This 115-nucleotide RNA from Alligator mississippiensis belongs to the Rfam family "Small nucleolar RNA SNORD90". The family's consensus secondary structure was predicted with RNAalifold. By type it is a C/D-box small nucleolar RNA. From the family's description: snoRNA HBII-295 belongs to the family of C/D snoRNAs. It is the human orthologue of the mouse MBII-295 and has no identified RNA target. Its family is annotated with nucleolus and RNA processing in the Gene Ontology.
[Rfam]
RNA sequence: AUAUCACUCAUUCUAGUGUCUUAUGAUGAAGCUGCAUAGGGCAGAUUCUGAGCUGAGAAGUGUUAUCUCUCACCACUGAUAUCUGUGUAUGCAAUCUGAAGACACUACCCCAUCC
Numbered sequence: 001a002u003a004u005c006a007c008u009c010a011u012u013c014u015a016g017u018g019u020c021u022u023a024u025g026a027u028g029a030a031g032c033u034g035c036a037u038a039g040g041g042c043a044g045a046u047u048c049u050g051a052g053c054u055g056a057g058a059a060g061u062g063u064u065a066u067c068u069c070u071c072a073c074c075a076c077u078g079a080u081a082u083c084u085g086u087g088u089a090u091g092c093a094a095u096c097u098g099a100a101g102a103c104a105c106u107a108c109c110c111c112a113u114c115c
Stems, first nucleotide, its partner, number of pairs: 014107008031095001033093005038086001040084002044080001047079002050076001052074001054072004